[Rfam]
RNA sequence: AAUGGCACCCUAUUCCCUACAUAGUGCACUACUUUUGACCGCGCUGGUCAAAAGUAGUGCACUGUAUAGGGAAUAGGGUGCCAUUU
Numbered sequence: 001a002a003u004g005g006c007a008c009c010c011u012a013u014u015c016c017c018u019a020c021a022u023a024g025u026g027c028a029c030u031a032c033u034u035u036u037g038a039c040c041g042c043g044c045u046g047g048u049c050a051a052a053a054g055u056a057g058u059g060c061a062c063u064g065u066a067u068a069g070g071g072a073a074u075a076g077g078g079u080g081c082c083a084u085u086u
Base pairs, nucleotide, nucleotide: 001086002085005081006080007079008078009077010076012074013073014072015071016070017069018068019067022064023063024062025061026060027059028058029057030056
The record is an 86-nucleotide RNA from Coregonus sp. 'balchen', which matches "mir-130 microRNA precursor family" in Rfam. Pairs were carried over by alignment from the consensus structure, which was predicted with PFOLD. NCBI's taxonomy places the organism under Eukaryota, Osteoglossocephalai, Salmoniformes, Salmonidae, Coregonus. The match comes from Rfam's covariance-model search (44 bits).